[Rfam]
RNA sequence: CCGGUUCCGGUUCACGCCCUUAAUCGGCGCGCAGCGGCGCGCCAGGGCGACCCGGCGACC
Numbered sequence: 001c002c003g004g005u006u007c008c009g010g011u012u013c014a015c016g017c018c019c020u021u022a023a024u025c026g027g028c029g030c031g032c033a034g035c036g037g038c039g040c041g042c043c044a045g046g047g048c049g050a051c052c053c054g055g056c057g058a059c060c
Stems, first nucleotide, its partner, number of pairs: 003060003007055004015049006
Description
A member of the RNA family "L31-Actinobacteria ribosomal protein leader" from Micromonospora radicis, 60 nucleotides long. It is annotated as a cis-regulatory leader. Taxonomically the source falls in Micromonospora (Bacteria, Bacillati, Actinomycetes, Micromonosporales). The match comes from Rfam's covariance-model search (52 bits).